[Rfam]
RNA: RT-1 RNA
RNA sequence: AGACUGUCAAGGUCAUUAUAGGCUUCGAAAGUUGCCAUAGACCAUGACAGUAUUACCAACAGGAAACGCAUGGCAUAGACUAUUGUCAUACCGAACUCCUUGGUGAUUAU
Dot-bracket structure: ...(((((..(((...(((.(((..(....)..)))))).)))..))))).(((((((..((((...(.((((((........)))))).).....)))))))))))...
Numbered sequence: 001a002g003a004c005u006g007u008c009a010a011g012g013u014c015a016u017u018a019u020a021g022g023c024u025u026c027g028a029a030a031g032u033u034g035c036c037a038u039a040g041a042c043c044a045u046g047a048c049a050g051u052a053u054u055a056c057c058a059a060c061a062g063g064a065a066a067c068g069c070a071u072g073g074c075a076u077a078g079a080c081u082a083u084u085g086u087c088a089u090a091c092c093g094a095a096c097u098c099c100u101u102g103g104u105g106a107u108u109a110u
Stems, first nucleotide, its partner, number of pairs: 004050005011043003017039003021036003026031001052107007061100004068091001070089006